[Rfam]
RNA sequence: CGUAGUUCUCAGGGCGGGGUGGAAGUCCCCACCGGGGGUAUGGGGGUGCGCCCCUGAGCCCGCGAGCGCCCCUGCCGAAGCAGGGGGUCAGCAGACCCGGUGAGAGGCCGGGGCCGACGGUGAAAGUCCGGAUGGAAGUGAACGCGC
Numbered sequence: 001c002g003u004a005g006u007u008c009u010c011a012g013g014g015c016g017g018g019g020u021g022g023a024a025g026u027c028c029c030c031a032c033c034g035g036g037g038g039u040a041u042g043g044g045g046g047u048g049c050g051c052c053c054c055u056g057a058g059c060c061c062g063c064g065a066g067c068g069c070c071c072c073u074g075c076c077g078a079a080g081c082a083g084g085g086g087g088u089c090a091g092c093a094g095a096c097c098c099g100g101u102g103a104g105a106g107g108c109c110g111g112g113g114c115c116g117a118c119g120g121u122g123a124a125a126g127u128c129c130g131g132a133u134g135g136a137a138g139u140g141a142a143c144g145c146g147c
Stems, first nucleotide, its partner, number of pairs: 005143004010138001017029003031127002033116002035063001037061002058114002066092002096112005118130003
This 147-nucleotide sequence from Albidovulum aquaemixtae belongs to the Rfam family "FMN riboswitch aptamer (RFN element)". The base pairs follow the family's consensus structure, which is taken from published work. Lineage of the source: Bacteria > Pseudomonadota > Rhodobacterales > Paracoccaceae > Albidovulum. Rfam's curators write: The RFN element is a highly conserved domain that is found frequently in the 5'-untranslated regions of prokaryotic mRNAs that encode for flavin mononucleotide (FMN) biosynthesis and transport proteins. This element is a metabolite-dependent riboswitch that directly binds FMN in the absence of proteins. In Bacillus subtilis, the riboswitch most likely controls gene expression by causing premature transcription termination within the 5' untranslated region of the ribDEAHT operon and precluding access to the ribosome-binding site of ypaA mRNA.The FMN riboswitch structure, reported in present an FMN-bound six-stem junction, adopts a butterfly-like scaffold, stapled together by opposingly directed but nearly identically folded peripheral domains.